[Rfam]
RNA sequence: UCCUUAUCAAGAGAGGCGGAGGGACAGGCCCUGUGAUGCCCGGCAACCUAGGGAGAGGACGGAAUACGUUCUCCCAAAAGGUGCCAAUUCCUGCGGUGAGAACCGGAAGAUGAGGU
Numbered sequence: 001u002c003c004u005u006a007u008c009a010a011g012a013g014a015g016g017c018g019g020a021g022g023g024a025c026a027g028g029c030c031c032u033g034u035g036a037u038g039c040c041c042g043g044c045a046a047c048c049u050a051g052g053g054a055g056a057g058g059a060c061g062g063a064a065u066a067c068g069u070u071c072u073c074c075c076a077a078a079a080g081g082u083g084c085c086a087a088u089u090c091c092u093g094c095g096g097u098g099a100g101a102a103c104c105g106g107a108a109g110a111u112g113a114g115g116u
Base pairs, nucleotide, nucleotide: 002115003114004113005112006111007110008109013041015040016039017038021031022030023029025093026092027091028090042085043084044083045082047081048080049077051075052074053073054072055071056070057069089108094105095104096103097102
RNA: SAM riboswitch aptamer (S box leader)